[Rfam]
RNA sequence: GGACGAGCCUCUGGAGAGACCGGGCAUGCCCCGGCGCCGAAGGCGAAAGUGCCGGCUUAGGCCGGCGCGAAACGCUCAGGCAAAAGGACAGAGGAGAGGAU
Numbered sequence: 001g002g003a004c005g006a007g008c009c010u011c012u013g014g015a016g017a018g019a020c021c022g023g024g025c026a027u028g029c030c031c032c033g034g035c036g037c038c039g040a041a042g043g044c045g046a047a048a049g050u051g052c053c054g055g056c057u058u059a060g061g062c063c064g065g066c067g068c069g070a071a072a073c074g075c076u077c078a079g080g081c082a083a084a085a086g087g088a089c090a091g092a093g094g095a096g097a098g099g100a101u
Stems, first nucleotide, its partner, number of pairs: 008094006020034004036081003039077002043075003049068008
Shown here is a 101-nucleotide sequence from Shewanella algae, a member of the family "Glycine riboswitch aptamer". The organism belongs to Shewanella, within Bacteria. It scores 66 bits against the family's covariance model. Rfam describes the family as follows. This family represents the bacterial glycine riboswitch. Glycine riboswitches usually consist of two metabolite-binding aptamers domains with similar structures in tandem. The aptamers cooperatively bind glycine to regulate the expression of downstream genes.